The family of this 108-nucleotide sequence from Plutella xylostella is "mir-8517 microRNA precursor family". NCBI's taxonomy places the organism under Eukaryota, Panorpida, Lepidoptera, Glossata, Plutella. The match comes from Rfam's covariance-model search (108 bits). Its family is annotated with RISC complex and miRNA-mediated post-transcriptional gene silencing in the Gene Ontology.

RNA sequence: UUACUGGGCGCUUUAGCUAUUGAACUGUUCUGUCACUAUCUGACAGAGAAAAAAUUGUUUUUUGACAGAGAGGGACAAAACAGUUCAGUAACUAAAGCAUCCAGUAAC
Numbered sequence: 001u002u003a004c005u006g007g008g009c010g011c012u013u014u015a016g017c018u019a020u021u022g023a024a025c026u027g028u029u030c031u032g033u034c035a036c037u038a039u040c041u042g043a044c045a046g047a048g049a050a051a052a053a054a055u056u057g058u059u060u061u062u063u064g065a066c067a068g069a070g071a072g073g074g075a076c077a078a079a080a081c082a083g084u085u086c087a088g089u090a091a092c093u094a095a096a097g098c099a100u101c102c103a104g105u106a107a108c
Stems, first nucleotide, its partner, number of pairs: 001107006011097006018090011029069007049059002052056001